[Rfam]
RNA sequence: ACGAAUAAAGCAUACAAACCUCAUAUAAUCAUGGGAAUAUGGCCCAGAAGUUUCUACCCGGUUACCGUAAAUGACUGGACUAUGAGGGAAAGUGAUGCCUUG
Numbered sequence: 001a002c003g004a005a006u007a008a009a010g011c012a013u014a015c016a017a018a019c020c021u022c023a024u025a026u027a028a029u030c031a032u033g034g035g036a037a038u039a040u041g042g043c044c045c046a047g048a049a050g051u052u053u054c055u056a057c058c059c060g061g062u063u064a065c066c067g068u069a070a071a072u073g074a075c076u077g078g079a080c081u082a083u084g085a086g087g088g089a090a091a092g093u094g095a096u097g098c099c100u101u102g
Base pairs, nucleotide, nucleotide: 019087020086021085022084023083024082025081029049032046033045034044035043058078059077060076061075062074063073064072
The record is a 102-nucleotide sequence from Jeotgalibacillus sp. S-D1, which matches "Purine riboswitch aptamer" in Rfam. Pairs were carried over by alignment from the consensus structure, which is taken from published work. Taxonomically the source falls in Jeotgalibacillus (Bacteria, Bacillati, Bacilli, Caryophanaceae). The match comes from Rfam's covariance-model search (86 bits). Rfam 15.1 lists 4,097 matches to the family in 1,411 species.